[Rfam]
RNA sequence: ACUAUGCACUAAGUAUUAGUGCAUUAGCUAUAUUCGAUAUAAUAUUAGCUAAUGCACUAAUACUUAGUGCAUAGU
Number, nucleotide and partner (000 for none) at each position: 001a075002c074003u073004a072005u071006g070007c069008a000009c000010u066011a065012a064013g063014u062015a061016u060017u059018a058019g057020u000021g000022c000023a000024u052025u051026a050027g049028c048029u047030a046031u000032a000033u000034u000035c000036g000037a000038u000039a000040u000041a000042a000043u000044a000045u000046u030047a029048g028049c027050u026051a025052a024053u000054g000055c000056a000057c019058u018059a017060a016061u015062a014063c013064u012065u011066a010067g000068u000069g007070c006071a005072u004073a003074g002075u001
RNA: mir-252 microRNA precursor family
Organism: Nicotiana attenuata